[Rfam]
RNA sequence: ACGUCUGGUUGAUUCGUCCCAGCGUGGCUAAGGGACGGACAUAAUGAGAAGGAACUGAGCAGAAAAAUGUCUGGUUGGGUGGCGAAGC
Numbered sequence: 001a002c003g004u005c006u007g008g009u010u011g012a013u014u015c016g017u018c019c020c021a022g023c024g025u026g027g028c029u030a031a032g033g034g035a036c037g038g039a040c041a042u043a044a045u046g047a048g049a050a051g052g053a054a055c056u057g058a059g060c061a062g063a064a065a066a067a068u069g070u071c072u073g074g075u076u077g078g079g080u081g082g083c084g085a086a087g088c
Stems, first nucleotide, its partner, number of pairs: 001025004007020002055078004060073003
The family of this 88-nucleotide RNA is "RAGATH-28 RNA".